Annotation: This 434-nucleotide sequence from Phyllostomus discolor belongs to the Rfam family "Vertebrate telomerase RNA". A reference for the family is Antal et al. (2002), "Analysis of the structure of human telomerase RNA in vivo", Nucleic Acids Res. A search with the family's covariance model found it, with a score of 323 bits. Telomerase is a ribonucleoprotein reverse transcriptase that synthesises telomeric DNA. Telomerase RNAs differ greatly in sequence and structure between vertebrates, ciliates and yeasts, but they share a 5' pseudoknot structure close to the template sequence. Vertebrate telomerase RNAs have a 3' H/ACA snoRNA-like domain.

RNA sequence: UGGCUCCGAGUCGGGUGACGGUUGCCUUUUAAUCUAACCCUAACUUCUUUGGGCGUAGGUGCCGUGCUUUUGCUCCCCGACCGCUGUUUUUCUCGCUGGCUUUCAGCGGGCGGAAAAGCCUUGGCCUACCGCCGUCCACCAUCCAGUUUAGCGUUAAAAAAAAAAAAAGUCAGCGACUGGCUAUCUCACCCGUCCCGGGACCCUGCAGUGCUCGCCCGUCCAGCCUCCGUGCCCCGCCUGGAGGCCGCGGUCGGCCUGGGGCUUCUCCGGAGGUGCCCGUUGCCGCCGCGAAGAGUUGGGCUCUGUCAGCCGCGGGUUUCUCGGGGGGCUGAGGGUGAAGCACUUGACGCAGGGAGAGAAACGGAGCGGGUCCCCGUGCACGGUGCACUUCUCUGAGCUGUGGGACUUGCACCAGGGACUGGGCUCGGACACGU
Numbered sequence: 001u002g003g004c005u006c007c008g009a010g011u012c013g014g015g016u017g018a019c020g021g022u023u024g025c026c027u028u029u030u031a032a033u034c035u036a037a038c039c040c041u042a043a044c045u046u047c048u049u050u051g052g053g054c055g056u057a058g059g060u061g062c063c064g065u066g067c068u069u070u071u072g073c074u075c076c077c078c079g080a081c082c083g084c085u086g087u088u089u090u091u092c093u094c095g096c097u098g099g100c101u102u103u104c105a106g107c108g109g110g111c112g113g114a115a116a117a118g119c120c121u122u123g124g125c126c127u128a129c130c131g132c133c134g135u136c137c138a139c140c141a142u143c144c145a146g147u148u149u150a151g152c153g154u155u156a157a158a159a160a161a162a163a164a165a166a167a168a169g170u171c172a173g174c175g176a177c178u179g180g181c182u183a184u185c186u187c188a189c190c191c192g193u194c195c196c197g198g199g200a201c202c203c204u205g206c207a208g209u210g211c212u213c214g215c216c217c218g219u220c221c222a223g224c225c226u227c228c229g230u231g232c233c234c235c236g237c238c239u240g241g242a243g244g245c246c247g248c249g250g251u252c253g254g255c256c257u258g259g260g261g262c263u264u265c266u267c268c269g270g271a272g273g274u275g276c277c278c279g280u281u282g283c284c285g286c287c288g289c290g291a292a293g294a295g296u297u298g299g300g301c302u303c304u305g306u307c308a309g310c311c312g313c314g315g316g317u318u319u320c321u322c323g324g325g326g327g328g329c330u331g332a333g334g335g336u337g338a339a340g341c342a343c344u345u346g347a348c349g350c351a352g353g354g355a356g357a358g359a360a361a362c363g364g365a366g367c368g369g370g371u372c373c374c375c376g377u378g379c380a381c382g383g384u385g386c387a388c389u390u391c392u393c394u395g396a397g398c399u400g401u402g403g404g405a406c407u408u409g410c411a412c413c414a415g416g417g418a419c420u421g422g423g424c425u426c427g428g429a430c431a432c433g434u
Stems, first nucleotide, its partner, number of pairs: 005199004010194001012192007020182005066119005078112002081109006095174006101167003202353005210341003213337005224327006233316005246290005252285004258278003292304004364426004369420006383412005390405004
Background
Pairs were carried over by alignment from the consensus structure, which is taken from published work.